RNA sequence: GGUGUACACUAGGGGUGCCAUUAUGAAAUGGCUGAGAUCAAAGUAUUACUUUGAGACUCUUUGAACCUGAACUGGCUUAAUACCAGCGGAGGAAAGUGACAGGACUUAUAG
Dot-bracket structure: ......((((((((.((((((......)))))......(((((.....))))))..)))).....(((...((((.......))))...)))..)))).............
RNA: TPP riboswitch aptamer (THI element)